Shown here is a 41-nucleotide RNA sequence from Flammeovirga sp. SJP92, a member of the family "DUF805b RNA".
A search with the family's covariance model found it, with a score of 36 bits.
The base pairs follow the family's consensus structure, which is taken from published work.
RNA sequence: AGGGCGUAAACCGAAAAGCCAAUUUUAAAAUAGAGUAGGAA
Numbered sequence: 001a002g003g004g005c006g007u008a009a010a011c012c013g014a015a016a017a018g019c020c021a022a023u024u025u026u027a028a029a030a031u032a033g034a035g036u037a038g039g040a041a
Stems, first nucleotide, its partner, number of pairs: 003020003011039002